Record summary: The family of this 390-nucleotide RNA from Paracoccus onubensis is "Bacterial RNase P class A".

RNA sequence: GCGGAGGGCUGGAUGACCGCGUGACCCGCAGUCACCUGCGCGGUUGCGAGGAAAGUCCGGACUCCAUGAGGCGACGGUGCCGGGUAACGCCCGGCGGGGGCAACCCCAGGGAAAGCGCCACAGAGAACAGACCGCCCUGCAUCCGCAGGGUAAGGGUGAAACGGUGGGGUAAGAGCCCACCGGGGGGCCGGCAACGGAACCCGCAUGGCAAGCCCCACCGGGAGCAAUGCCGAAUAGGGAUCGCGCGCGGGGAAACCUGCAGGGCCGCCUUGCCCCAGCAGAUCCGGGUAGGCAGCUUGAUCCGGCCGGUAACGGCCGGACCAGAGGAAUGGUCAUCCAUCCGGGGGCGACUCCGGAGGACAGAAUCCGGCUUACAGGCCCUCCGCGCAA
Number, nucleotide and partner (000 for none) at each position: 001g386002c385003g384004g383005a382006g381007g380008g379009c378010u377011g375012g337013a336014u335015g334016a333017c332018c331019g000020c048021g047022u046023g045024a044025c043026c042027c000028g000029c000030a000031g000032u000033c000034a000035c000036c000037u000038g000039c000040g000041c000042g026043g025044u024045u023046g022047c021048g020049a000050g000051g000052a000053a373054a372055g371056u000057c370058c369059g368060g367061a366062c224063u223064c222065c221066a000067u000068g000069a000070g271071g270072c000073g268074a000075c220076g219077g218078u217079g216080c094081c093082g092083g091084g090085u000086a000087a000088c000089g000090c084091c083092c082093g081094g080095c109096g107097g106098g105099g104100g000101c000102a000103a000104c099105c098106c097107c096108a000109g095110g215111g214112a000113a000114a000115g213116c212117g209118c208119c207120a000121c000122a000123g000124a000125g000126a000127a000128c000129a000130g000131a000132c155133c154134g151135c150136c149137c148138u147139g146140c145141a000142u000143c000144c000145g140146c139147a138148g137149g136150g135151u134152a000153a000154g133155g132156g000157u000158g000159a000160a000161a000162c000163g181164g180165u179166g178167g177168g176169g000170u000171a000172a000173g000174a000175g000176c168177c167178c166179a165180c164181c163182g204183g202184g201185g200186g000187g000188c197189c196190g195191g000192c000193a000194a000195c190196g189197g188198a000199a000200c185201c184202c183203g000204c182205a000206u000207g119208g118209c117210a000211a000212g116213c115214c111215c110216c079217a078218c077219c076220g075221g065222g064223a063224g062225c000226a000227a000228u294229g293230c292231c291232g000233a000234a000235u000236a000237g000238g285239g284240a283241u282242c281243g000244c000245g000246c000247g000248c000249g000250g000251g000252g000253a000254a000255a000256c000257c000258u000259g000260c000261a000262g276263g275264g274265c000266c272267g000268c073269c000270u071271u070272g266273c000274c264275c263276c262277a000278g000279c000280a000281g242282a241283u240284c239285c238286g000287g000288g000289u000290a000291g231292g230293c229294a228295g000296c000297u000298u000299g000300a000301u320302c319303c318304g317305g316306c315307c314308g313309g000310u000311a000312a000313c308314g307315g306316c305317c304318g303319g302320a301321c000322c000323a000324g000325a000326g000327g000328a000329a000330u000331g018332g017333u016334c015335a014336u013337c012338c000339a000340u000341c000342c000343g000344g000345g000346g000347g000348c000349g000350a000351c000352u000353c000354c000355g000356g000357a000358g000359g000360a000361c000362a000363g000364a000365a000366u061367c060368c059369g058370g057371c055372u054373u053374a000375c011376a000377g010378g009379c008380c007381c006382u005383c004384c003385g002386c001387g000388c000389a000390a000
The source organism's lineage runs through Bacteria, Pseudomonadota, Alphaproteobacteria, Rhodobacterales and Paracoccus. It scores 286 bits against the family's covariance model. By type it is a ribozyme.